[Rfam]
RNA sequence: UGGCAGUAGCUAUAUGAUUAUAUUUGACUGGAGAAGUUAAGUGGCUGGUUGUUGUAAAUCUAUUGGCCUAUCUGCUUACCCAACUUCUUACAUUU
Number, nucleotide and partner (000 for none) at each position: 001u000002g000003g000004c000005a000006g000007u000008a000009g000010c000011u000012a000013u000014a000015u000016g000017a000018u000019u000020a000021u000022a000023u000024u000025u000026g000027a000028c000029u000030g000031g089032a088033g087034a086035a085036g084037u083038u082039a000040a000041g000042u000043g076044g075045c074046u000047g072048g071049u070050u000051g067052u066053u065054g064055u000056a000057a000058a000059u000060c000061u000062a000063u000064u054065g053066g052067c051068c000069u000070a049071u048072c047073u000074g045075c044076u043077u000078a000079c000080c000081c000082a038083a037084c036085u035086u034087c033088u032089u031090a000091c000092a000093u000094u000095u000
The family of this 95-nucleotide RNA from Nicotiana attenuata is "Small nucleolar RNA snoR109". The family's RNA type in Rfam is H/ACA-box small nucleolar RNA. The base pairs follow the family's consensus structure, which was predicted with WAR.